[Rfam]
RNA sequence: GUUGUUGCCAUGAUGAGUCUCUAUUUGGACUAGAGUUUCUGAUCUGGUCAUAUUUGACCAGAAAUUGAAGACUAACCCUUGGCUGUCUGAGCAAAAC
Numbered sequence: 001g002u003u004g005u006u007g008c009c010a011u012g013a014u015g016a017g018u019c020u021c022u023a024u025u026u027g028g029a030c031u032a033g034a035g036u037u038u039c040u041g042a043u044c045u046g047g048u049c050a051u052a053u054u055u056g057a058c059c060a061g062a063a064a065u066u067g068a069a070g071a072c073u074a075a076c077c078c079u080u081g082g083c084u085g086u087c088u089g090a091g092c093a094a095a096a097c
Stems, first nucleotide, its partner, number of pairs: 001097003005094004036070004043063001044061005
RNA: Small nucleolar RNA Z157/R69/R10